[Rfam]
Small nucleolar RNA psi18S-841/snoR66: a 140-nucleotide RNA sequence from Scaptodrosophila lebanonensis. Clan: SNORA28 clan. Pairs were carried over by alignment from the consensus structure, which was predicted with RNAfold. Its family is annotated with RNA processing and nucleolus in the Gene Ontology.

RNA sequence: UGCAUACGCACUCUGUGUCACAUUGAAAAUCGACCAAAUGUGAUGACAAUUUGUAAGUCUGCUAUACAAAUUUGGCGCUGUUAUUUAUCCAUGCAACAAUUUUUUAAAUAAUUGCUGCAUUGAUUUAAGCUCCACAUUCG
Numbered sequence: 001u002g003c004a005u006a007c008g009c010a011c012u013c014u015g016u017g018u019c020a021c022a023u024u025g026a027a028a029a030u031c032g033a034c035c036a037a038a039u040g041u042g043a044u045g046a047c048a049a050u051u052u053g054u055a056a057g058u059c060u061g062c063u064a065u066a067c068a069a070a071u072u073u074g075g076c077g078c079u080g081u082u083a084u085u086u087a088u089c090c091a092u093g094c095a096a097c098a099a100u101u102u103u104u105u106a107a108a109u110a111a112u113u114g115c116u117g118c119a120u121u122g123a124u125u126u127a128a129g130c131u132c133c134a135c136a137u138u139c140g
Stems, first nucleotide, its partner, number of pairs: 002062003006058002010054002014048003017044007024036001069138002074132002077130003081127001088123002091120005097114002100111002